[Rfam]
RNA sequence: CGACCGGGACGGCCCGGUUCCUAGCCAAGGUCACUAGCCGGGACGACCCGG
Numbered sequence: 001c002g003a004c005c006g007g008g009a010c011g012g013c014c015c016g017g018u019u020c021c022u023a024g025c026c027a028a029g030g031u032c033a034c035u036a037g038c039c040g041g042g043a044c045g046a047c048c049c050g051g
Base pairs, nucleotide, nucleotide: 002019003018004017005016006015007014008013038051039050040049041048042047
Overview
The family of this 51-nucleotide RNA from Rhizobium sp. PDO1-076 is "Guanidine-II riboswitch aptamer (mini-ykkC)". Taxonomically the source falls in Rhizobium (Bacteria, Pseudomonadati, Hyphomicrobiales, Rhizobiaceae).